[Rfam]
Overview:
Shown here is a 75-nucleotide sequence from Myotis myotis, a member of the family "mir-9223 microRNA precursor family". Rfam 15.1 lists 14,641 matches to the family in 28 species. Its family is annotated with miRNA-mediated post-transcriptional gene silencing and RISC complex in the Gene Ontology.
RNA sequence: GGUGGUUGUCGGGUGACGCACCCCAGAAUCAGGCUCCCUCUUCUCUGAUUCUGGGUGUGUUACGUGAGAACUGCA
Numbered sequence: 001g002g003u004g005g006u007u008g009u010c011g012g013g014u015g016a017c018g019c020a021c022c023c024c025a026g027a028a029u030c031a032g033g034c035u036c037c038c039u040c041u042u043c044u045c046u047g048a049u050u051c052u053g054g055g056u057g058u059g060u061u062a063c064g065u066g067a068g069a070a071c072u073g074c075a
Stems, first nucleotide, its partner, number of pairs: 002074002005071003009067003013063005019057005025052009
Dot-bracket structure: .((.(((.(((.(((((.(((((.(((((((((..........)))))))))))))).))))).))).))).)).